[Rfam]
RNA sequence: AAAUUAUAAAAGCGUUAUUCUUGUAUAAGCCCAUUAAUAAGGGAUGGGCGUUUCUACAGGCAACCGUGAAUUGCCCCAGGCUACAAGAGACUGAAAGCGACGC
Numbered sequence: 001a002a003a004u005u006a007u008a009a010a011a012g013c014g015u016u017a018u019u020c021u022u023g024u025a026u027a028a029g030c031c032c033a034u035u036a037a038u039a040a041g042g043g044a045u046g047g048g049c050g051u052u053u054c055u056a057c058a059g060g061c062a063a064c065c066g067u068g069a070a071u072u073g074c075c076c077c078a079g080g081c082u083a084c085a086a087g088a089g090a091c092u093g094a095a096a097g098c099g100a101c102g103c
Stems, first nucleotide, its partner, number of pairs: 018089008029049007059075005
This 103-nucleotide RNA from Paenibacillus sp. Leaf72 belongs to the Rfam family "Purine riboswitch aptamer".
The family's consensus secondary structure is taken from published work.
About the family: Riboswitches are metabolite binding domains within certain messenger RNAs that serve as precision sensors for their corresponding targets.